[Rfam]
About this RNA: This 86-nucleotide sequence from Litchfieldia stipae belongs to the Rfam family "c-di-GMP-I riboswitch aptamer".
RNA sequence: CAUACGAAAAGGCAAAUCUAUUGAAAGAUAGAGACGCAAAGCUUCAGAUCUAAGGUCUUUUGGACUAUGAUGGCUGGGUUGCCGAA
Number, nucleotide and partner (000 for none) at each position: 001c000002a000003u000004a000005c000006g000007a000008a000009a000010a000011g000012g037013c036014a000015a000016a000017u032018c031019u030020a029021u028022u027023g000024a000025a000026a000027g022028a021029u020030a019031g018032a017033g000034a000035c000036g013037c012038a000039a000040a080041g079042c078043u077044u000045c076046a075047g074048a071049u070050c069051u000052a000053a000054g000055g065056u064057c063058u062059u000060u000061u000062g058063g057064a056065c055066u000067a000068u000069g050070a049071u048072g000073g000074c047075u046076g045077g043078g042079u041080u040081g000082c000083c000084g000085a000086a000

The match comes from Rfam's covariance-model search (83 bits).